[Rfam]
This 76-nucleotide RNA belongs to the Rfam family "nadA riboswitch".
Rfam classes the family as a small RNA.
RNA sequence: GCUUUCAACAUCCCCGUCUCAAGGACAAAAGACGGCGCCGUCUAUCGGCUCCUGACGUCCUGGUGAGACUGAAGGC
Numbered sequence: 001g002c003u004u005u006c007a008a009c010a011u012c013c014c015c016g017u018c019u020c021a022a023g024g025a026c027a028a029a030a031g032a033c034g035g036c037g038c039c040g041u042c043u044a045u046c047g048g049c050u051c052c053u054g055a056c057g058u059c060c061u062g063g064u065g066a067g068a069c070u071g072a073a074g075g076c
Stems, first nucleotide, its partner, number of pairs: 001076007013062001016069006023061001025058002031056001